[Rfam]
RNA sequence: GUUACGGCGGCUUUCUGAUUCGCUUGGUGCAGGUCGGGAACGGUAUCGCCGCCUACCGUUUCGGUGAACACUAGUCCCGCCUUGCAUCAACUGAAUCGGAAACCGCCGUGAAU
Numbered sequence: 001g002u003u004a005c006g007g008c009g010g011c012u013u014u015c016u017g018a019u020u021c022g023c024u025u026g027g028u029g030c031a032g033g034u035c036g037g038g039a040a041c042g043g044u045a046u047c048g049c050c051g052c053c054u055a056c057c058g059u060u061u062c063g064g065u066g067a068a069c070a071c072u073a074g075u076c077c078c079g080c081c082u083u084g085c086a087u088c089a090a091c092u093g094a095a096u097c098g099g100a101a102a103c104c105g106c107c108g109u110g111a112a113u
Stems, first nucleotide, its partner, number of pairs: 014100002018096004024090010035079005042072003